The record is a 75-nucleotide RNA from Butyrivibrio fibrisolvens, which matches "c-di-GMP-I riboswitch aptamer" in Rfam.
The base pairs follow the family's consensus structure, which is taken from published work.
About the family: GEMM was predicted in a large-scale screen for bacterial structured RNA regulatory elements.
It scores 50 bits against the family's covariance model.

[Rfam]
RNA sequence: ACAUAUUUACGGUAAAGCCAGAGCAAUCUGGUGACACAAAGCUAUAGGGACUCUCAGAGUCAGCCAGUUGCAUGU
Numbered sequence: 001a002c003a004u005a006u007u008u009a010c011g012g013u014a015a016a017g018c019c020a021g022a023g024c025a026a027u028c029u030g031g032u033g034a035c036a037c038a039a040a041g042c043u044a045u046a047g048g049g050a051c052u053c054u055c056a057g058a059g060u061c062a063g064c065c066a067g068u069u070g071c072a073u074g075u
Stems, first nucleotide, its partner, number of pairs: 012037002017032006040069004047065002049061005
Dot-bracket structure: ...........((...((((((....))))))...))..((((...(((((((...)))))..))))))......